[Rfam]
RNA: Small nucleolar RNA SNORD74
RNA sequence: GUAGGCAGCCUUUGAUGAAGCCUGUGUUGGUAAGGACACCUGAGGGUGAAGUGUGGCAGAGUUAAAGGAACCAAC
Numbered sequence: 001g002u003a004g005g006c007a008g009c010c011u012u013u014g015a016u017g018a019a020g021c022c023u024g025u026g027u028u029g030g031u032a033a034g035g036a037c038a039c040c041u042g043a044g045g046g047u048g049a050a051g052u053g054u055g056g057c058a059g060a061g062u063u064a065a066a067g068g069a070a071c072c073a074a075c
Stems, first nucleotide, its partner, number of pairs: 001075002004072002